[Rfam]
RNA sequence: AUGGGAUUAUUUUGGCAAGAAAAGAAUUCAUCCAUGGGGUCUUCAUAAAGCAUGGGGGGGGUUGGAGUUUGGGAAUCCUCACCCUCCUCCAAGAAUUAAAACUGUUUGCCUGUGCUUGGCCAAUGGCUCAGCUAAACAGUGAACACCGAGCGCAUGGAAGAGGAUCCUAUAGAGUACUAGCCAGCUGAGGCUUUUGGCUAAUGUACUGGCAAACCGGCAAGUCACAGAACGGCAAUGGACUCAAUCACGAGUCUU
Numbered sequence: 001a002u003g004g005g006a007u008u009a010u011u012u013u014g015g016c017a018a019g020a021a022a023a024g025a026a027u028u029c030a031u032c033c034a035u036g037g038g039g040u041c042u043u044c045a046u047a048a049a050g051c052a053u054g055g056g057g058g059g060g061g062u063u064g065g066a067g068u069u070u071g072g073g074a075a076u077c078c079u080c081a082c083c084c085u086c087c088u089c090c091a092a093g094a095a096u097u098a099a100a101a102c103u104g105u106u107u108g109c110c111u112g113u114g115c116u117u118g119g120c121c122a123a124u125g126g127c128u129c130a131g132c133u134a135a136a137c138a139g140u141g142a143a144c145a146c147c148g149a150g151c152g153c154a155u156g157g158a159a160g161a162g163g164a165u166c167c168u169a170u171a172g173a174g175u176a177c178u179a180g181c182c183a184g185c186u187g188a189g190g191c192u193u194u195u196g197g198c199u200a201a202u203g204u205a206c207u208g209g210c211a212a213a214c215c216g217g218c219a220a221g222u223c224a225c226a227g228a229a230c231g232g233c234a235a236u237g238g239a240c241u242c243a244a245u246c247a248c249g250a251g252u253c254u255u
Base pairs, nucleotide, nucleotide: 060090061089104214105213106212107211108210109209123202124201238253239252240251241250242249
The family of this 255-nucleotide RNA from Durio zibethinus is "Early nodulin 40".
Gene Ontology term of the family: nodulation.
For this family Rfam cites "Identification of conserved secondary structures and expansion segments in enod40 RNAs reveals new enod40 homologues in plants" (Gultyaev and Roussis, Nucleic Acids Res, 2007).
It scores 120 bits against the family's covariance model.